[Rfam]
RNA sequence: UGCUCAUUGCACUGUAUGGCUUUAUAUUCCUAUCUGAUGGUCCUGGGGAUUCAUAUAGGGAUGGAAGCCAUGCAGUGCGAUGAGUU
Numbered sequence: 001u002g003c004u005c006a007u008u009g010c011a012c013u014g015u016a017u018g019g020c021u022u023u024a025u026a027u028u029c030c031u032a033u034c035u036g037a038u039g040g041u042c043c044u045g046g047g048g049a050u051u052c053a054u055a056u057a058g059g060g061a062u063g064g065a066a067g068c069c070a071u072g073c074a075g076u077g078c079g080a081u082g083a084g085u086u
Stems, first nucleotide, its partner, number of pairs: 002085022026062008035053003
Dot-bracket structure: .((((((((((((((((((((((..((((((((.(((.............))).)))))))).)))))))))))))))))))))).
Shown here is an 86-nucleotide RNA from Conger conger, a member of the family "mir-135 microRNA precursor family". The family's consensus secondary structure was predicted with PFOLD. The family has 88 seed sequences and 2,125 matches in Rfam 15.1. Gene Ontology terms of the family: RISC complex and gene silencing by miRNA. It scores 76 bits against the family's covariance model. On this family, see Lagos-Quintana et al., Curr Biol 2002: "Identification of tissue-specific microRNAs from mouse".